[Rfam]
The record is a 54-nucleotide RNA sequence from Coregonus sp. 'balchen', which matches "UnaL2 LINE 3' element" in Rfam.
Rfam's curators write: The eel long interspersed element (LINE) UnaL2 and its partner short interspersed element (SINE) share a conserved 3' tail containing a stem-loop that is critical for their retrotransposition. Presumably, the first step of retrotransposition is the recognition of their 3' tails by UnaL2-encoded reverse transcriptase.
The match comes from Rfam's covariance-model search (60 bits).
Rfam links the family to the GO term transposition, RNA-mediated.
NCBI's taxonomy places the organism under Eukaryota, Actinopterygii, Neopterygii, Clupeocephala, Coregonus.

RNA sequence: CAAAGGACUUGAUGUAAGUCGCUCUGGAUAAGAGCGUCUGCUAAAUGAUGUAAA
Numbered sequence: 001c002a003a004a005g006g007a008c009u010u011g012a013u014g015u016a017a018g019u020c021g022c023u024c025u026g027g028a029u030a031a032g033a034g035c036g037u038c039u040g041c042u043a044a045a046u047g048a049u050g051u052a053a054a
Base pairs, nucleotide, nucleotide: 013043014041015040016039020036021035022034023033024032025031